[Rfam]
RNA sequence: ACCACUGAGCCAUCUCUCCAGCCUAAAGGCAGUUUUAAAAAUAUUAACAAAUUUGGGCUGGAGAGAUGGCUUAGUGGU
Numbered sequence: 001a002c003c004a005c006u007g008a009g010c011c012a013u014c015u016c017u018c019c020a021g022c023c024u025a026a027a028g029g030c031a032g033u034u035u036u037a038a039a040a041a042u043a044u045u046a047a048c049a050a051a052u053u054u055g056g057g058c059u060g061g062a063g064a065g066a067u068g069g070c071u072u073a074g075u076g077g078u
Stems, first nucleotide, its partner, number of pairs: 002077023